RNA sequence: ACUGACUUUGAGUCUCUCCUCAGGGUGCUUUGGGCAAAUCUGGUGACCCAGGAAGAGACAUAAGUGAGG
Dot-bracket structure: .((.((((...((((((.((..((((..(.(((......))))..)))).)).))))))..)))).)).
Numbered sequence: 001a002c003u004g005a006c007u008u009u010g011a012g013u014c015u016c017u018c019c020u021c022a023g024g025g026u027g028c029u030u031u032g033g034g035c036a037a038a039u040c041u042g043g044u045g046a047c048c049c050a051g052g053a054a055g056a057g058a059c060a061u062a063a064g065u066g067a068g069g
Stems, first nucleotide, its partner, number of pairs: 002068002005065004012059006019052002023049004029043001031042003